[Rfam]
A member of the RNA family "Group II catalytic intron D1-D4-3" from Rhizobiales bacterium GAS113, 169 nucleotides long.
A reference for the family is Bonen and Vogel (2001), "The ins and outs of group II introns", Trends Genet.
The source organism's lineage runs through Bacteria, Pseudomonadati, Pseudomonadota, Alphaproteobacteria and Hyphomicrobiales.
From the family's description: Group II introns are found in rRNA, tRNA and mRNA of organelles in fungi, plants and protists, and also in mRNA in bacteria.
RNA sequence: GCCACCGCGAGGUGGUGUCUGAAGGAAGUGUGGAGCAAACGUGCGGGUCGAUGGACAAAUACCGGAUAUAAGGCGCGAGCGCCGGACGAGCGGGCGACUUACCGCGAAGUCCAUAUCCAUCAAGGGUGCGAAGCGUAGAUCCGGCGACUGUGCAUGGAAGGCGGCUGAA
Numbered sequence: 001g002c003c004a005c006c007g008c009g010a011g012g013u014g015g016u017g018u019c020u021g022a023a024g025g026a027a028g029u030g031u032g033g034a035g036c037a038a039a040c041g042u043g044c045g046g047g048u049c050g051a052u053g054g055a056c057a058a059a060u061a062c063c064g065g066a067u068a069u070a071a072g073g074c075g076c077g078a079g080c081g082c083c084g085g086a087c088g089a090g091c092g093g094g095c096g097a098c099u100u101a102c103c104g105c106g107a108a109g110u111c112c113a114u115a116u117c118c119a120u121c122a123a124g125g126g127u128g129c130g131a132a133g134c135g136u137a138g139a140u141c142c143g144g145c146g147a148c149u150g151u152g153c154a155u156g157g158a159a160g161g162c163g164g165c166u167g168a169a
Base pairs, nucleotide, nucleotide: 001016002015003014004013005012006011029168032165035162036161040156041155042154043153044152045151046149047148048147049146050145062144063143064142065141066140067139073136074135075134079129080128081127082126083125084112085111086110087109090105091104092103093102